A member of the RNA family "MIR475 microRNA precursor family" from Salix viminalis, 130 nucleotides long.
On this family, see Lu et al., Plant Cell 2005: "Novel and mechanical stress-responsive MicroRNAs in Populus trichocarpa that are absent from Arabidopsis".
Its family is annotated with RISC complex and miRNA-mediated post-transcriptional gene silencing in the Gene Ontology.
[Rfam]
RNA sequence: UAACAUCUUGAUCAAUGGCCAUUGCCAGAGUAGAAGGGUCCAUGAAGCAAUACCUCUGUUUGCUGAAAUGAGUGAUGAAACAUUGACUCCUGGUAUUUCACUCUUACAGUGCCCAUUGAUUAAGAUGGUA
Numbered sequence: 001u002a003a004c005a006u007c008u009u010g011a012u013c014a015a016u017g018g019c020c021a022u023u024g025c026c027a028g029a030g031u032a033g034a035a036g037g038g039u040c041c042a043u044g045a046a047g048c049a050a051u052a053c054c055u056c057u058g059u060u061u062g063c064u065g066a067a068a069u070g071a072g073u074g075a076u077g078a079a080a081c082a083u084u085g086a087c088u089c090c091u092g093g094u095a096u097u098u099c100a101c102u103c104u105u106a107c108a109g110u111g112c113c114c115a116u117u118g119a120u121u122a123a124g125a126u127g128g129u130a
Stems, first nucleotide, its partner, number of pairs: 004127015020111005027104005033099004038094003044089002048085004